[Rfam]
RNA: Small nucleolar RNA SNORD83
RNA sequence: GCCAAAUGAUGAAAUUAGAUGGCAUUAGCUCCCAGGGCAAAGAUGACCUUCAUCUAUCACCCCAUACUGAUGGCU
Dot-bracket structure: ((((.......................((((...))))................................)))).